The record is a 130-nucleotide RNA sequence from Cottoperca gobio, which matches "Small nucleolar RNA SNORA68" in Rfam. It is annotated as an H/ACA-box small nucleolar RNA. It scores 76 bits against the family's covariance model. Rfam's curators write: U68 is a member of the H/ACA class of small nucleolar RNAs (snoRNAs) which act as guides in the the modification of uridines to pseudouridines. A reference for the family is Ganot et al. (1997), "The family of box ACA small nucleolar RNAs is defined by an evolutionarily conserved secondary structure and ubiquitous sequence elements essential for RNA accumulation", Genes Dev.

RNA sequence: CGUGCACCCAAACCCAAAGGCCAUAUCAUGUCCGUGGUAUGAUUUUGUCUGGUGUGCAAACAGCAAACGGACCCUUGUCGCCUUUCUGUGUCUGCAGUGCCGCUGAAAGUGAAUCCAAGGGGCAACAGAU
Numbered sequence: 001c002g003u004g005c006a007c008c009c010a011a012a013c014c015c016a017a018a019g020g021c022c023a024u025a026u027c028a029u030g031u032c033c034g035u036g037g038u039a040u041g042a043u044u045u046u047g048u049c050u051g052g053u054g055u056g057c058a059a060a061c062a063g064c065a066a067a068c069g070g071a072c073c074c075u076u077g078u079c080g081c082c083u084u085u086c087u088g089u090g091u092c093u094g095c096a097g098u099g100c101c102g103c104u105g106a107a108a109g110u111g112a113a114u115c116c117a118a119g120g121g122g123c124a125a126c127a128g129a130u
Stems, first nucleotide, its partner, number of pairs: 003058005009052001019044002022041007069123001072121005082109005088103003092099001

Lineage of the source: Eukaryota > Eumetazoa > Craniata > Osteoglossocephalai > Cottoperca.